[Rfam]
RNA sequence: UCACCCAUCGGGGUCACGGAUACCUGCUUUUAUUUUU
Dot-bracket structure: ..((((....))))..(((....)))...........